[Rfam]
RNA sequence: CCAACGGCUCUUUUAGGAGCCACCAAACUCACAAAAGCAAUGACCA
Dot-bracket structure: .....((((((....)))))).........................
Numbered sequence: 001c002c003a004a005c006g007g008c009u010c011u012u013u014u015a016g017g018a019g020c021c022a023c024c025a026a027a028c029u030c031a032c033a034a035a036a037g038c039a040a041u042g043a044c045c046a
Stems, first nucleotide, its partner, number of pairs: 006021006

Rfam assigns this 46-nucleotide RNA sequence from Pocillopora damicornis to the family "Histone 3' UTR stem-loop". The base pairs follow the family's consensus structure, which is taken from published work. Lineage of the source: Eukaryota > Opisthokonta > Metazoa > Cnidaria > Pocillopora. A search with the family's covariance model found it, with a score of 35 bits.